[Rfam]
RNA sequence: CACCAAGCCAGGCGGUGGAUGGCUCGGCUCGGGGACCGAAGAAGGGCGCGGCAAGCGGCGAAACGCCUGGGUUAGGCGCAGGCGGCCGUCGACCCCAGGAUUCCCGAAUGGGACUUCCUGCCCGUAUGGGCACUCCCGCGCAAGUGGGAGGGGGAACUCCCCGAACGGAAGCAUCUUAGUAGGGGAAGGAAGAGAAAUCAAGCGAGAUUCCCUGAGUAGGGGCGACCGAAAGGGGAAGAGCCCAGACCGAACCCGGCUGCGAUAAGUAGUCUGGGGAUGUGGGGUAGUGGCGCGCUGUCGGGGGAAACCUGGACGUCCUAACUCUCCUAGUCGAACUCCCCUGGGAUGGGGGGCCGAAGAGGGUGAAAGCCCCGUAGACGAAAGGAGAGUGGGCGUGACAGCGUACCGAGUACCAUCCUCUGGUUUGAGGGUGGGAAUCUAGGGGACACGUGCCUCUAAGGCUAAAUAUCUCCCGAGACCGAUAGCGAACUAAGUACCGUGAGGGAAAGCUGAAAAGUAGCCCGGGAGGGCGGUGAAAAGUGCCUGAAACCGUCUGGCGAUACAG
Numbered sequence: 001c002a003c004c005a006a007g008c009c010a011g012g013c014g015g016u017g018g019a020u021g022g023c024u025c026g027g028c029u030c031g032g033g034g035a036c037c038g039a040a041g042a043a044g045g046g047c048g049c050g051g052c053a054a055g056c057g058g059c060g061a062a063a064c065g066c067c068u069g070g071g072u073u074a075g076g077c078g079c080a081g082g083c084g085g086c087c088g089u090c091g092a093c094c095c096c097a098g099g100a101u102u103c104c105c106g107a108a109u110g111g112g113a114c115u116u117c118c119u120g121c122c123c124g125u126a127u128g129g130g131c132a133c134u135c136c137c138g139c140g141c142a143a144g145u146g147g148g149a150g151g152g153g154g155a156a157c158u159c160c161c162c163g164a165a166c167g168g169a170a171g172c173a174u175c176u177u178a179g180u181a182g183g184g185g186a187a188g189g190a191a192g193a194g195a196a197a198u199c200a201a202g203c204g205a206g207a208u209u210c211c212c213u214g215a216g217u218a219g220g221g222g223c224g225a226c227c228g229a230a231a232g233g234g235g236a237a238g239a240g241c242c243c244a245g246a247c248c249g250a251a252c253c254c255g256g257c258u259g260c261g262a263u264a265a266g267u268a269g270u271c272u273g274g275g276g277a278u279g280u281g282g283g284g285u286a287g288u289g290g291c292g293c294g295c296u297g298u299c300g301g302g303g304g305a306a307a308c309c310u311g312g313a314c315g316u317c318c319u320a321a322c323u324c325u326c327c328u329a330g331u332c333g334a335a336c337u338c339c340c341c342u343g344g345g346a347u348g349g350g351g352g353g354c355c356g357a358a359g360a361g362g363g364u365g366a367a368a369g370c371c372c373c374g375u376a377g378a379c380g381a382a383a384g385g386a387g388a389g390u391g392g393g394c395g396u397g398a399c400a401g402c403g404u405a406c407c408g409a410g411u412a413c414c415a416u417c418c419u420c421u422g423g424u425u426u427g428a429g430g431g432u433g434g435g436a437a438u439c440u441a442g443g444g445g446a447c448a449c450g451u452g453c454c455u456c457u458a459a460g461g462c463u464a465a466a467u468a469u470c471u472c473c474c475g476a477g478a479c480c481g482a483u484a485g486c487g488a489a490c491u492a493a494g495u496a497c498c499g500u501g502a503g504g505g506a507a508a509g510c511u512g513a514a515a516a517g518u519a520g521c522c523c524g525g526g527a528g529g530g531c532g533g534u535g536a537a538a539a540g541u542g543c544c545u546g547a548a549a550c551c552g553u554c555u556g557g558c559g560a561u562a563c564a565g
Base pairs, nucleotide, nucleotide: 007558008557009556010555011554012553013552014551015550021544022510023509026480027479028477029476030475031474032473033472034470035469044105045104046103047060048059049058066099067098068097069096070095071094075087076086077085110119111118112117133150134149135148136147137146138145139144157188158186159185160184161183162182168175169174198205199204209236210235211234212233213232219227220226239463240462241461242460247282248281249280257269258268259267260266293403294402295401296400314395315394316393317392330379331378332377336352338351339350340349341348355359361373362372363371413434414433415432416431417430418429419428441457442456443455444454445453497504498503

Archaeal large subunit ribosomal RNA: a 565-nucleotide part of an RNA from Sulfodiicoccus acidiphilus. The match comes from Rfam's covariance-model search (2753 bits). Its family is annotated with ribosome and structural constituent of ribosome in the Gene Ontology. On this family, see Yusupov et al., Science 2001: "Crystal structure of the ribosome at 5.5 A resolution".